Shown here is a 102-nucleotide sequence from Citrifermentans bemidjiense, a member of the family "TPP riboswitch aptamer (THI element)". The match comes from Rfam's covariance-model search (77 bits). Rfam links the family to the GO term thiamine pyrophosphate binding. The source organism's lineage runs through Bacteria, Desulfuromonadia, Geobacteraceae, Citrifermentans and Citrifermentans bemidjiense.
[Rfam]
RNA sequence: AAAGCCAGCUAGGGGAGUUCUUGAGAACUGAGACAGGCGCGGCCUGAACCCUUUGAACCUGAUCCGGUUGACACCGGCGUAGGGAAGCGGCGCGAACUCCGA
Numbered sequence: 001a002a003a004g005c006c007a008g009c010u011a012g013g014g015g016a017g018u019u020c021u022u023g024a025g026a027a028c029u030g031a032g033a034c035a036g037g038c039g040c041g042g043c044c045u046g047a048a049c050c051c052u053u054u055g056a057a058c059c060u061g062a063u064c065c066g067g068u069u070g071a072c073a074c075c076g077g078c079g080u081a082g083g084g085a086a087g088c089g090g091c092g093c094g095a096a097c098u099c100c101g102a
Stems, first nucleotide, its partner, number of pairs: 006090001008088003011052004017028004035045004058083004064077004